[Rfam]
ctgf/hcs24 CAESAR: a 71-nucleotide RNA sequence from Pachyramphus minor. Rfam 15.1 lists 518 matches to the family in 508 species. About the family: The 3' UTR of human connective tissue growth factor/hypertrophic chondrocyte specific 24 (ctgf/hcs24) mRNA has been shown to repress ctgf gene expression. Reference identified a minimal RNA element, predicted to form a stable secondary structure, which acts as a post-transcriptional cis-acting element of structure-anchored repression (CAESAR), probably through direct interactions with as yet unknown nuclear factors. Rfam links the family to the GO term negative regulation of gene expression. Rfam classes the family as a cis-regulatory element.
RNA sequence: AUGGAGACAUGGCAUAAAGCCAGAAGGAGACUGUCUAGAUUCUCAACUUGAACUGAUUUGCAUCUCAUUUU
Number, nucleotide and partner (000 for none) at each position: 001a000002u000003g000004g066005a065006g064007a063008c000009a000010u022011g021012g020013c019014a000015u000016a000017a000018a000019g013020c012021c011022a010023g061024a000025a059026g058027g000028a000029g000030a000031c000032u000033g000034u000035c000036u000037a000038g000039a000040u000041u000042c000043u000044c000045a000046a000047c000048u000049u000050g000051a000052a000053c000054u000055g000056a000057u000058u026059u025060g000061c023062a000063u007064c006065u005066c004067a000068u000069u000070u000071u000